The record is a 169-nucleotide RNA sequence from Oscillospiraceae bacterium Marseille-Q3528, which matches "Clostridiales-1 RNA" in Rfam. A search with the family's covariance model found it, with a score of 115 bits. It is annotated as a small RNA. NCBI's taxonomy places the organism under Bacteria, Bacillati, Bacillota, Eubacteriales, Oscillospiraceae.

RNA sequence: UGAUGCCAGGGGCAACAGCCAAAAAGAACGAUGCACUCGCGCAAAAGUGAUUUUAUGGCUGAAUGCCCCGCCCUAAUAUGAGGACAAAAGUGGGGCGAAUGCCACACGAUAUCCGAAUAUUGGGCAGGAUUGUGAGAGUACGAAGUACGAAACAAUCCGUAAGGCAUCU
Numbered sequence: 001u002g003a004u005g006c007c008a009g010g011g012g013c014a015a016c017a018g019c020c021a022a023a024a025a026g027a028a029c030g031a032u033g034c035a036c037u038c039g040c041g042c043a044a045a046a047g048u049g050a051u052u053u054u055a056u057g058g059c060u061g062a063a064u065g066c067c068c069c070g071c072c073c074u075a076a077u078a079u080g081a082g083g084a085c086a087a088a089a090g091u092g093g094g095g096c097g098a099a100u101g102c103c104a105c106a107c108g109a110u111a112u113c114c115g116a117a118u119a120u121u122g123g124g125c126a127g128g129a130u131u132g133u134g135a136g137a138g139u140a141c142g143a144a145g146u147a148c149g150a151a152a153c154a155a156u157c158c159g160u161a162a163g164g165c166a167u168c169u
Stems, first nucleotide, its partner, number of pairs: 002168006010068004016061006023053003028048002032043003072124008082114003090107003094103003127158007138148004